[Rfam]
RNA sequence: CCCAGGGCUGCGCCCUGGGCUGUGUUAGGUUGGCCCUUCAGGCCA
Numbered sequence: 001c002c003c004a005g006g007g008c009u010g011c012g013c014c015c016u017g018g019g020c021u022g023u024g025u026u027a028g029g030u031u032g033g034c035c036c037u038u039c040a041g042g043c044c045a
Stems, first nucleotide, its partner, number of pairs: 001019008032044004
Source information: A member of the RNA family "Acido-Lenti-1 RNA" from Posidoniimonas polymericola, 45 nucleotides long. Lineage of the source: Bacteria > Planctomycetia > Pirellulales > Lacipirellulaceae > Posidoniimonas. By type it is a small RNA. It scores 40 bits against the family's covariance model.